The family of this 370-nucleotide part of an RNA from Methylomirabilis oxygeniifera is "Bacterial large subunit ribosomal RNA". Rfam links the family to the GO terms structural constituent of ribosome and ribosome. Taxonomically the source falls in Methylomirabilis (SeqCode) (Bacteria, Bacteria candidate phyla, Methylomirabilota (SeqCode), Methylomirabilia (SeqCode)).
RNA sequence: CGAGAGAACACUCGCUAAGGAACUCGGCAAAAUAGCCCCGUAACUUCGGGAAAAGGGGUACCAUACCGGGGUGAGCAGGUUCACCCUGCAAAGCCCCGGGAGGUCGCAGUGAAUCGGGCCAAGCGACUGUUUAAUAAAAACACAGGUCCGUGCUAAGCCGAAAGGCGAUGUAUACGGACUGACGCCUGCCCGGUGCCGGACGGUUAACAGGAGGGGUCAUUCGCCGCAAGGCGGAAAAGCUCUGAAUCGAAGCCCCGGUAAACGGCGGCCGUAACUAUAACGGUCCUAAGGUAGCGAAAUUCCUUGUCGGGUAAGUUCCGACCUGCACGAAUGGCGUAACGACUUGGCCGCUGUCUCAGCGAGUGGCUCG
Numbered sequence: 001c002g003a004g005a006g007a008a009c010a011c012u013c014g015c016u017a018a019g020g021a022a023c024u025c026g027g028c029a030a031a032a033u034a035g036c037c038c039c040g041u042a043a044c045u046u047c048g049g050g051a052a053a054a055g056g057g058g059u060a061c062c063a064u065a066c067c068g069g070g071g072u073g074a075g076c077a078g079g080u081u082c083a084c085c086c087u088g089c090a091a092a093g094c095c096c097c098g099g100g101a102g103g104u105c106g107c108a109g110u111g112a113a114u115c116g117g118g119c120c121a122a123g124c125g126a127c128u129g130u131u132u133a134a135u136a137a138a139a140a141c142a143c144a145g146g147u148c149c150g151u152g153c154u155a156a157g158c159c160g161a162a163a164g165g166c167g168a169u170g171u172a173u174a175c176g177g178a179c180u181g182a183c184g185c186c187u188g189c190c191c192g193g194u195g196c197c198g199g200a201c202g203g204u205u206a207a208c209a210g211g212a213g214g215g216g217u218c219a220u221u222c223g224c225c226g227c228a229a230g231g232c233g234g235a236a237a238a239g240c241u242c243u244g245a246a247u248c249g250a251a252g253c254c255c256c257g258g259u260a261a262a263c264g265g266c267g268g269c270c271g272u273a274a275c276u277a278u279a280a281c282g283g284u285c286c287u288a289a290g291g292u293a294g295c296g297a298a299a300u301u302c303c304u305u306g307u308c309g310g311g312u313a314a315g316u317u318c319c320g321a322c323c324u325g326c327a328c329g330a331a332u333g334g335c336g337u338a339a340c341g342a343c344u345u346g347g348c349c350g351c352u353g354u355c356u357c358a359g360c361g362a363g364u365g366g367c368u369c370g
Stems, first nucleotide, its partner, number of pairs: 001370004009365008018356003035059005044049001060104003064100001070085006105109001117349007124341002128142003145180008153170001157166003183336004188266003193263002195259005202254003209247001213243005220235006267285006286290001296323001306322006